[Rfam]
RNA sequence: GAGAACUAAUAAUCUGAGGAAUGGAAUGAAGGAGUAACGCCCCGAAACGUUCCCACUGAUACUCCGACAAGCAUUAGUCAAAAGCUGGUGUUUGAAGCUCGGUGAAGUCGGCAGAAGAUUACCGUAAUUUAUUCUUAUUAGAGUAAAACGAAAUUUGUUCAGAGGUGAAUGAUGUAAUUGAUAUGCCGGGUGUCAAUUGU
Numbered sequence: 001g002a003g004a005a006c007u008a009a010u011a012a013u014c015u016g017a018g019g020a021a022u023g024g025a026a027u028g029a030a031g032g033a034g035u036a037a038c039g040c041c042c043c044g045a046a047a048c049g050u051u052c053c054c055a056c057u058g059a060u061a062c063u064c065c066g067a068c069a070a071g072c073a074u075u076a077g078u079c080a081a082a083a084g085c086u087g088g089u090g091u092u093u094g095a096a097g098c099u100c101g102g103u104g105a106a107g108u109c110g111g112c113a114g115a116a117g118a119u120u121a122c123c124g125u126a127a128u129u130u131a132u133u134c135u136u137a138u139u140a141g142a143g144u145a146a147a148a149c150g151a152a153a154u155u156u157g158u159u160c161a162g163a164g165g166u167g168a169a170u171g172a173u174g175u176a177a178u179u180g181a182u183a184u185g186c187c188g189g190g191u192g193u194c195a196a197u198u199g200u
Stems, first nucleotide, its partner, number of pairs: 018053006031043002034040001054192004064102004068094010109188005117179006123150003138146002155172007

Shown here is a 200-nucleotide sequence, a member of the family "Group II catalytic intron D1-D4-5". The sequence is in the family's curated seed alignment. From the family's description: Group II introns are found in rRNA, tRNA and mRNA of organelles in fungi, plants and protists, and also in mRNA in bacteria. Pairs were carried over by alignment from the consensus structure.